RNA sequence: UUGAAGGCGUGGAGACUGAAGUCCUCUCUCUGUCCGCAGAACAGGUGUGGCACAGGCCGCGGCAGUGCAGCUUUUCCACUGUCCCACCACUGUGCCUCAGUCCUGGCCGAGAGGGACCAUGUUGAGGGUAAGAGGGCUGUCAGUCUCCAUGCCCUUCAAUCUUUGGCUACU
Numbered sequence: 001u002u003g004a005a006g007g008c009g010u011g012g013a014g015a016c017u018g019a020a021g022u023c024c025u026c027u028c029u030c031u032g033u034c035c036g037c038a039g040a041a042c043a044g045g046u047g048u049g050g051c052a053c054a055g056g057c058c059g060c061g062g063c064a065g066u067g068c069a070g071c072u073u074u075u076c077c078a079c080u081g082u083c084c085c086a087c088c089a090c091u092g093u094g095c096c097u098c099a100g101u102c103c104u105g106g107c108c109g110a111g112a113g114g115g116a117c118c119a120u121g122u123u124g125a126g127g128g129u130a131a132g133a134g135g136g137c138u139g140u141c142a143g144u145c146u147c148c149a150u151g152c153c154c155u156u157c158a159a160u161c162u163u164u165g166g167c168u169a170c171u
Base pairs, nucleotide, nucleotide: 002158003157004156006153007152010149011148012147013146014145015144016143017142018141019140023135024134025133026132027131031130032129033128034127037105038104039103041101047097050095051094052093053092054091055090061083062082063081064080065079108126111123112122114120